[Rfam]
M-box riboswitch aptamer (ykoK leader): a 158-nucleotide RNA sequence from Alkalibacterium sp. AK22.
RNA sequence: AGAAAUUAUCGGUAGGUGAGGCUACCACAGGGAUACGGGUUACUGCCGCAAAGUAGUGGAGACACUAUGAGUGGGCCAACAGUCCAUAUCGACUCAAGGUAUGGAAUAGUGUAACAACAUUGCUCUGUGAAGCUAAAACUUGAACGAUGGCUUUGUAU
Numbered sequence: 001a002g003a004a005a006u007u008a009u010c011g012g013u014a015g016g017u018g019a020g021g022c023u024a025c026c027a028c029a030g031g032g033a034u035a036c037g038g039g040u041u042a043c044u045g046c047c048g049c050a051a052a053g054u055a056g057u058g059g060a061g062a063c064a065c066u067a068u069g070a071g072u073g074g075g076c077c078a079a080c081a082g083u084c085c086a087u088a089u090c091g092a093c094u095c096a097a098g099g100u101a102u103g104g105a106a107u108a109g110u111g112u113a114a115c116a117a118c119a120u121u122g123c124u125c126u127g128u129g130a131a132g133c134u135a136a137a138a139c140u141u142g143a144a145c146g147a148u149g150g151c152u153u154u155g156u157a158u
Base pairs, nucleotide, nucleotide: 005154009150010149011145013097015140016139017138020134021133022132026129027128028127029126030125031124032123039115040114041113042112043111046074047073048072049071055066056065057064058063083105084104085103088100089099090098
Dot-bracket structure: ....(...(((.[.(((..(((...(((((((......(((((..((((.....((((....))))....))))........(((..(((......])))..))).....))))).......)))))))..)))...)))....)...))...)....

Rfam links the family to the GO terms regulation of gene expression and response to magnesium ion. NCBI's taxonomy places the organism under Bacteria, Bacillati, Bacillota, Bacilli, Alkalibacterium. It scores 105 bits against the family's covariance model.